[Rfam]
RNA sequence: CUUGAGCGACCCCAGCCGCAGCGGCUGCCGGUCUUCGCGCCCGUGCCCGUAGGUGGCGAUCAGGGCGUGGGCUUC
Number, nucleotide and partner (000 for none) at each position: 001c000002u000003u000004g000005a000006g000007c000008g000009a000010c000011c000012c000013c000014a026015g025016c024017c023018g000019c000020a000021g000022c000023g017024g016025c015026u014027g000028c000029c000030g000031g000032u070033c069034u000035u000036c000037g000038c065039g000040c000041c000042c000043g060044u059045g000046c000047c056048c055049g054050u000051a000052g000053g000054u049055g048056g047057c000058g000059a044060u043061c000062a000063g000064g000065g038066c000067g000068u000069g033070g032071g000072c000073u000074u000075c000